[Rfam]
RNA sequence: GGGUGUUCGCAAAAUGCUGAUGCGGACAGGUUCUAACGUUGGUCGGGCCGCCAACG
Number, nucleotide and partner (000 for none) at each position: 001g000002g000003g000004u000005g027006u026007u025008c024009g023010c022011a021012a000013a000014a000015u000016g000017c000018u000019g000020a000021u011022g010023c009024g008025g007026a006027c005028a000029g000030g000031u000032u000033c000034u000035a000036a000037c056038g055039u054040u053041g052042g051043u050044c000045g000046g000047g000048c000049c000050g043051c042052c041053a040054a039055c038056g037
RNA: nhaA-I RNA
Organism: Sphingomonas sp. S17